[Rfam]
RNA sequence: CGUAUGUUUGUCCACGAUAGGCCCCGGAAACUUAUUGUUUGUCAAACAGAAGAAA
Numbered sequence: 001c002g003u004a005u006g007u008u009u010g011u012c013c014a015c016g017a018u019a020g021g022c023c024c025c026g027g028a029a030a031c032u033u034a035u036u037g038u039u040u041g042u043c044a045a046a047c048a049g050a051a052g053a054a055a
Stems, first nucleotide, its partner, number of pairs: 007050005014038008
Description
A member of the RNA family "Ribosomal protein L13 leader" from Lactobacillus johnsonii, 55 nucleotides long. On this family, see Zengel and Lindahl, Prog Nucleic Acid Res Mol Biol 1994: "Diverse mechanisms for regulating ribosomal protein synthesis in Escherichia coli". The family's consensus secondary structure was predicted with CMfinder. The sequence is in the family's curated seed alignment. By type it is a cis-regulatory leader.